[Rfam]
RNA sequence: AUUUAGUUAUAUGACUGACGGAAGUGGAAGUGACCACAGGGAGUAUAACAGUUUGACAGCCGACCGUCUGGGCAGAAAAG
Number, nucleotide and partner (000 for none) at each position: 001a000002u000003u000004u051005a000006g049007u048008u047009a046010u045011a044012u043013g000014a000015c040016u039017g068018a067019c066020g065021g064022a000023a000024g037025u036026g035027g034028a000029a000030g000031u000032g000033a000034c027035c026036a025037c024038a000039g016040g015041g000042a000043g012044u011045a010046u009047a008048a007049c006050a000051g004052u000053u000054u000055g000056a000057c075058a000059g073060c072061c071062g000063a000064c021065c020066g019067u018068c017069u000070g000071g061072g060073c059074a000075g057076a000077a000078a000079a000080g000
RNA: ZMP/ZTP riboswitch aptamer (pfl RNA motif)